RNA: Small nucleolar RNA SNORD24
RNA sequence: UGCAAACGAUGCUAAUUACUUGUUGCUAAAUAUGAUUGAUGACAACCACCAAGAUCGCUGAUGCA
Numbered sequence: 001u002g003c004a005a006a007c008g009a010u011g012c013u014a015a016u017u018a019c020u021u022g023u024u025g026c027u028a029a030a031u032a033u034g035a036u037u038g039a040u041g042a043c044a045a046c047c048a049c050c051a052a053g054a055u056c057g058c059u060g061a062u063g064c065a
Base pairs, nucleotide, nucleotide: 001065002064003063004062